[Rfam]
RNA sequence: AGUUUUGCACAGUGGCAGUAUCAUAGCUGGUGAGGUUUAUUCAAGGCACAAUUAUUGCUAAUCGAAAAUUUUUCCAAUACCCAGUCAUGACGACUUGAAAUAUAGUUGGCAUUGGCAAUUUUUGCAAGUCUCUAAGGAGA
Numbered sequence: 001a002g003u004u005u006u007g008c009a010c011a012g013u014g015g016c017a018g019u020a021u022c023a024u025a026g027c028u029g030g031u032g033a034g035g036u037u038u039a040u041u042c043a044a045g046g047c048a049c050a051a052u053u054a055u056u057g058c059u060a061a062u063c064g065a066a067a068a069u070u071u072u073u074c075c076a077a078u079a080c081c082c083a084g085u086c087a088u089g090a091c092g093a094c095u096u097g098a099a100a101u102a103u104a105g106u107u108g109g110c111a112u113u114g115g116c117a118a119u120u121u122u123u124g125c126a127a128g129u130c131u132c133u134a135a136g137g138a139g140a
Base pairs, nucleotide, nucleotide: 020052021051024048026047027046028045034042035041084116085115086114087112088111089110091108092107093106094105095104129140130139131138132137
RNA: U4 spliceosomal RNA